[Rfam]
RNA sequence: CUUCAGGAAGCGUUUUGCCUACUUGGACAUAAAACGCGCCCUUAAAGGAGCGAUUUUUGUCCACAUAGGCAAAACACUUCCUCAAGG
Numbered sequence: 001c002u003u004c005a006g007g008a009a010g011c012g013u014u015u016u017g018c019c020u021a022c023u024u025g026g027a028c029a030u031a032a033a034a035c036g037c038g039c040c041c042u043u044a045a046a047g048g049a050g051c052g053a054u055u056u057u058u059g060u061c062c063a064c065a066u067a068g069g070c071a072a073a074a075c076a077c078u079u080c081c082u083c084a085a086g087g
Base pairs, nucleotide, nucleotide: 001086002085003084005082006081007080008079009078010077012075013074014073015072016071017070018069019068020067021066024063025062026061027060028059029058031056032055033054035052036051037050040047
MIR7486 microRNA precursor family: an 87-nucleotide RNA from Gossypium hirsutum.
NCBI's taxonomy places the organism under Eukaryota, Tracheophyta, rosids, Malvales, Gossypium.
Gene Ontology terms of the family: RISC complex and miRNA-mediated post-transcriptional gene silencing.
A search with the family's covariance model found it, with a score of 69 bits.